[Rfam]
RNA sequence: UAUCUAUCCAGAGCGACCGAGAGACCUGGCUCGUCGACGUCGCAGCAACCACCCCCGCGGAUCUCGCGGGGAACGGUGCUCCCGCCAGGACCGAUGGAGC
Numbered sequence: 001u002a003u004c005u006a007u008c009c010a011g012a013g014c015g016a017c018c019g020a021g022a023g024a025c026c027u028g029g030c031u032c033g034u035c036g037a038c039g040u041c042g043c044a045g046c047a048a049c050c051a052c053c054c055c056c057g058c059g060g061a062u063c064u065c066g067c068g069g070g071g072a073a074c075g076g077u078g079c080u081c082c083c084g085c086c087a088g089g090a091c092c093g094a095u096g097g098a099g100c
Stems, first nucleotide, its partner, number of pairs: 003098006013043005021032003026088004044080004049076002052071003084092001
Record summary:
The record is a 100-nucleotide RNA sequence from Kocuria palustris, which matches "SAM riboswitch aptamer (S box leader)" in Rfam. The family's consensus secondary structure is taken from published work. Its Rfam clan is "SAM clan".